[Rfam]
RNA sequence: GGGUCCGGCGGGCCACGAACUCCCCCAAAGAACCUGAGGUAAAGAACCACCUGCCCUCCCUCCCCUCCCCCUCGUCACCCGGACGAGUGACUGGCUUGCGGGGGCGGGAAGUUGGCGGUUACGUUCGCCGCAACAACCGCAGACAUAUGACGGCCCCCGGCCGGGACUGGCAUCCCGAUCGAGGGCCUCACCGAUCAGGAAGAAGCACCUUCCCG
Numbered sequence: 001g002g003g004u005c006c007g008g009c010g011g012g013c014c015a016c017g018a019a020c021u022c023c024c025c026c027a028a029a030g031a032a033c034c035u036g037a038g039g040u041a042a043a044g045a046a047c048c049a050c051c052u053g054c055c056c057u058c059c060c061u062c063c064c065c066u067c068c069c070c071c072u073c074g075u076c077a078c079c080c081g082g083a084c085g086a087g088u089g090a091c092u093g094g095c096u097u098g099c100g101g102g103g104g105c106g107g108g109a110a111g112u113u114g115g116c117g118g119u120u121a122c123g124u125u126c127g128c129c130g131c132a133a134c135a136a137c138c139g140c141a142g143a144c145a146u147a148u149g150a151c152g153g154c155c156c157c158c159g160g161c162c163g164g165g166a167c168u169g170g171c172a173u174c175c176c177g178a179u180c181g182a183g184g185g186c187c188u189c190a191c192c193g194a195u196c197a198g199g200a201a202g203a204a205g206c207a208c209c210u211u212c213c214c215g
Base pairs, nucleotide, nucleotide: 007195009193010192075090076089077088078087080085103129104128105127106126107125152187153186154185155184156183158181159180163176164175165174166173198213199212200211201210202209
RNA: Streptomyces sRNA 4677